[Rfam]
RNA sequence: AUUCUAAUAACUAGGGUGCCUGCGAGGUUAUCCCAUUGCUUCUCGACUCUACCUACUUUGGUUUGGCCGCCGAUCAGUUGAGGAGAGAGCAGCUCUGGCGUUACGCAUAGCUGGCUGUUAGCUUAGAUUCCUUACGAUGUUACUACUAACAGUUUUUGUAACCAUAACCCGAGUAAAAUCGGGUUUUUAUUU
Number, nucleotide and partner (000 for none) at each position: 001a000002u000003u000004c000005u000006a000007a000008u000009a000010a000011c000012u000013a000014g033015g032016g031017u030018g029019c000020c027021u026022g000023c000024g000025a000026g021027g020028u000029u018030a017031u016032c015033c014034c000035a000036u000037u000038g000039c000040u000041u000042c092043u091044c000045g000046a000047c082048u081049c080050u000051a078052c077053c000054u000055a000056c000057u000058u073059u072060g071061g070062u069063u000064u000065g000066g000067c000068c000069g062070c061071c060072g059073a058074u000075c000076a000077g052078u051079u000080g049081a048082g047083g000084a000085g000086a000087g000088a000089g000090c000091a043092g042093c000094u000095c000096u000097g000098g000099c000100g162101u161102u160103a159104c158105g157106c000107a000108u000109a000110g000111c000112u000113g154114g153115c152116u151117g150118u149119u148120a147121g146122c000123u000124u000125a000126g000127a000128u000129u000130c000131c000132u000133u000134a000135c000136g000137a000138u000139g000140u000141u000142a000143c000144u000145a000146c121147u120148a119149a118150c117151a116152g115153u114154u113155u000156u000157u105158g104159u103160a102161a101162c100163c000164a000165u000166a185167a184168c183169c182170c181171g180172a179173g000174u000175a000176a000177a000178a000179u172180c171181g170182g169183g168184u167185u166186u000187u000188u000189a000190u000191u000192u000
RNA: MicX Vibrio cholerae sRNA